This 108-nucleotide RNA from Streptococcus suis belongs to the Rfam family "Streptococcus sRNA 10".
RNA sequence: AUCGAGGGAGUAGCUAGCGGAAAAUUCCGUGAUAUUGUCGUCAAUCCGACUUGUUUCCGGCAAUAUAUUAAAUAGCGAGACUUGUUUUAAUAAAACAGGUCUCUUUUU
Numbered sequence: 001a002u003c004g005a006g007g008g009a010g011u012a013g014c015u016a017g018c019g020g021a022a023a024a025u026u027c028c029g030u031g032a033u034a035u036u037g038u039c040g041u042c043a044a045u046c047c048g049a050c051u052u053g054u055u056u057c058c059g060g061c062a063a064u065a066u067a068u069u070a071a072a073u074a075g076c077g078a079g080a081c082u083u084g085u086u087u088u089a090a091u092a093a094a095a096c097a098g099g100u101c102u103c104u105u106u107u108u
Stems, first nucleotide, its partner, number of pairs: 005030001007028002011023001014020001032066009043056002048052001077103012